[Rfam]
This 119-nucleotide sequence from Setaria italica belongs to the Rfam family "Small nucleolar RNA SNORD14". Lineage of the source: Eukaryota > Viridiplantae > Petrosaviidae > Poaceae > Setaria.
RNA sequence: GCCCUAUGAUGAUAGACCAAAGGCUUGUUUCUGAACAUUCGCAGUAGCCGCCUAAGAGCUUUCGCCUUGCCAGGCUUGCGAGCUAAUGCUGCUAAUUCCUUCCUUGGAUGUCUGAGGGC
Numbered sequence: 001g002c003c004c005u006a007u008g009a010u011g012a013u014a015g016a017c018c019a020a021a022g023g024c025u026u027g028u029u030u031c032u033g034a035a036c037a038u039u040c041g042c043a044g045u046a047g048c049c050g051c052c053u054a055a056g057a058g059c060u061u062u063c064g065c066c067u068u069g070c071c072a073g074g075c076u077u078g079c080g081a082g083c084u085a086a087u088g089c090u091g092c093u094a095a096u097u098c099c100u101u102c103c104u105u106g107g108a109u110g111u112c113u114g115a116g117g118g119c
Stems, first nucleotide, its partner, number of pairs: 001119004058083004063078001